RNA sequence: UGUCUCCUCCAUCCUCCUUCUUUGGUGGAUUUUUAAGCGCGGUUCAAAAUUGAACCGCGCCUUUUUUU
Numbered sequence: 001u002g003u004c005u006c007c008u009c010c011a012u013c014c015u016c017c018u019u020c021u022u023u024g025g026u027g028g029a030u031u032u033u034u035a036a037g038c039g040c041g042g043u044u045c046a047a048a049a050u051u052g053a054a055c056c057g058c059g060c061c062u063u064u065u066u067u068u
Stems, first nucleotide, its partner, number of pairs: 008029006037060007
RNA: Betaproteobacteria toxic small RNA